[Rfam]
The record is a 122-nucleotide sequence from Clostridium sp. CAG:43, which matches "Molybdenum/Tungsten riboswitch aptamer (Moco RNA motif)" in Rfam. The base pairs follow the family's consensus structure, which is taken from published work.

RNA sequence: AGGAAAACUAUAUUUCGAGCUGAAAAACCUAACACAGUAUAUUGUCAGGGUUUACAGCCAAUGGGUAUCAGGGGAAACCCGGAUGCCUCCCGCAUUUGGAAAGAAAUGCAUUGGAAAGAGAA
Numbered sequence: 001a002g003g004a005a006a007a008c009u010a011u012a013u014u015u016c017g018a019g020c021u022g023a024a025a026a027a028c029c030u031a032a033c034a035c036a037g038u039a040u041a042u043u044g045u046c047a048g049g050g051u052u053u054a055c056a057g058c059c060a061a062u063g064g065g066u067a068u069c070a071g072g073g074g075a076a077a078c079c080c081g082g083a084u085g086c087c088u089c090c091c092g093c094a095u096u097u098g099g100a101a102a103g104a105a106a107u108g109c110a111u112u113g114g115a116a117a118g119a120g121a122a
Stems, first nucleotide, its partner, number of pairs: 011108006019058004024053002027051003034045003063088007071080003089099002